mir-320 microRNA precursor family: a 76-nucleotide sequence from Microcebus murinus. A search with the family's covariance model found it, with a score of 66 bits. Taxonomically the source falls in Microcebus (Eukaryota, Gnathostomata, Teleostomi, Sarcopterygii). The family's consensus secondary structure was predicted with RNAalifold. Rfam links the family to the GO terms RISC complex, negative regulation of gene expression and positive regulation of stem cell proliferation.

[Rfam]
RNA sequence: AGAAUGGUUGGCUUUCUCUUCCCGGUUCUUCCCAGAAUCGGGAAAAGCUGGGCUAAGAGAGUGGAGAAAAACAAAA
Number, nucleotide and partner (000 for none) at each position: 001a000002g000003a000004a000005u000006g000007g000008u000009u000010g000011g000012c000013u000014u059015u058016c057017u056018c000019u000020u000021c052022c051023c050024g049025g048026u000027u000028c000029u044030u043031c042032c041033c040034a000035g000036a000037a000038u000039c000040g033041g032042g031043a030044a029045a000046a000047g000048c025049u024050g023051g022052g021053c000054u000055a000056a017057g016058a015059g014060a000061g000062u000063g000064g000065a000066g000067a000068a000069a000070a000071a000072c000073a000074a000075a000076a000